[Rfam]
RNA: mir-129 microRNA precursor family
Organism: Hymenochirus boettgeri
RNA sequence: CUAAAUCUUUUUGCGGUAUGGGCUUGAUUACGUACAAAAAAUAACCGGGAAGCGCAUUACCCCAAAAAGCAUUGG
Numbered sequence: 001c002u003a004a005a006u007c008u009u010u011u012u013g014c015g016g017u018a019u020g021g022g023c024u025u026g027a028u029u030a031c032g033u034a035c036a037a038a039a040a041a042u043a044a045c046c047g048g049g050a051a052g053c054g055c056a057u058u059a060c061c062c063c064a065a066a067a068a069g070c071a072u073u074g075g
Stems, first nucleotide, its partner, number of pairs: 007069007015061003020055001022053002025050001028047001